[Rfam]
RNA sequence: UGCCCGGUGAUGACACCCAUCCUUGCUCCCCGUGCCCUCCCAGCAGGGCUUUGGGCGACAUCCUGGCUGCCCCUGGGCAGGGCCGGUUGGGCUGAUGCCUGGGGGCUGAGGGCA
Numbered sequence: 001u002g003c004c005c006g007g008u009g010a011u012g013a014c015a016c017c018c019a020u021c022c023u024u025g026c027u028c029c030c031c032g033u034g035c036c037c038u039c040c041c042a043g044c045a046g047g048g049c050u051u052u053g054g055g056c057g058a059c060a061u062c063c064u065g066g067c068u069g070c071c072c073c074u075g076g077g078c079a080g081g082g083c084c085g086g087u088u089g090g091g092c093u094g095a096u097g098c099c100u101g102g103g104g105g106c107u108g109a110g111g112g113c114a
Base pairs, nucleotide, nucleotide: 001114002113003112004111005110

The record is a 114-nucleotide RNA from Erinaceus europaeus, which matches "Small nucleolar RNA SNORD23" in Rfam.